[Rfam]
RNA sequence: ACGCAUAGUUGGUAGCUGCUCUUUUGAGUAGAGGAAAGUCCGUGCUAGCACCAUCUGCGAUGAUGGUAGUGAUCAUGCUAAGCCAAAUAAGCUUAGGCCCAGACGACUAGUGCCACAGAGACGAGAAUUGUGAAACGCGGUAAACUCCAUGAGCUAGAAACCCAAAUUUUGGUAGGGGAACCCGAAACAAGGAAUUGAACAAGUUUUGGGAGUGUUAUUUUAUAACAUUAGAUAAAUUACCAACACUGAUUUUAUCAGAACAGAACACGGCUUAUAAUG
Numbered sequence: 001a002c003g004c005a006u007a008g009u010u011g012g013u014a015g016c017u018g019c020u021c022u023u024u025u026g027a028g029u030a031g032a033g034g035a036a037a038g039u040c041c042g043u044g045c046u047a048g049c050a051c052c053a054u055c056u057g058c059g060a061u062g063a064u065g066g067u068a069g070u071g072a073u074c075a076u077g078c079u080a081a082g083c084c085a086a087a088u089a090a091g092c093u094u095a096g097g098c099c100c101a102g103a104c105g106a107c108u109a110g111u112g113c114c115a116c117a118g119a120g121a122c123g124a125g126a127a128u129u130g131u132g133a134a135a136c137g138c139g140g141u142a143a144a145c146u147c148c149a150u151g152a153g154c155u156a157g158a159a160a161c162c163c164a165a166a167u168u169u170u171g172g173u174a175g176g177g178g179a180a181c182c183c184g185a186a187a188c189a190a191g192g193a194a195u196u197g198a199a200c201a202a203g204u205u206u207u208g209g210g211a212g213u214g215u216u217a218u219u220u221u222a223u224a225a226c227a228u229u230a231g232a233u234a235a236a237u238u239a240c241c242a243a244c245a246c247u248g249a250u251u252u253u254a255u256c257a258g259a260a261c262a263g264a265a266c267a268c269g270g271c272u273u274a275u276a277a278u279g
Stems, first nucleotide, its partner, number of pairs: 004279003007275001008244007016031006036273003040270005045157005050067006073152005078096006097104001098102001105147002110145002112141003161177003181210007211229006246258004
A member of the RNA family "Bacterial RNase P class B" from Mycoplasma sp. Pen4, 279 nucleotides long. The family's consensus secondary structure is taken from published work. It scores 225 bits against the family's covariance model. The family is grouped with related families in Rfam's "RNaseP clan". Rfam classes the family as a ribozyme. The literature on the family includes a 1998 paper in Annu Rev Biochem by Frank and Pace, "Ribonuclease P: unity and diversity in a tRNA processing ribozyme".